Notes
The family of this 62-nucleotide RNA from Microbacterium esteraromaticum is "Bacillus-plasmid RNA". The family's RNA type in Rfam is small RNA. The organism belongs to Microbacterium, within Bacteria. Pairs were carried over by alignment from the consensus structure, which is taken from published work.
[Rfam]
RNA sequence: CUGGCCCCCGGUACCGGACUGAGCGCAGCGAGGGAGGAUAAGGAGGGGGACAGUGGCACGCA
Numbered sequence: 001c002u003g004g005c006c007c008c009c010g011g012u013a014c015c016g017g018a019c020u021g022a023g024c025g026c027a028g029c030g031a032g033g034g035a036g037g038a039u040a041a042g043g044a045g046g047g048g049g050a051c052a053g054u055g056g057c058a059c060g061c062a
Stems, first nucleotide, its partner, number of pairs: 001053003005049005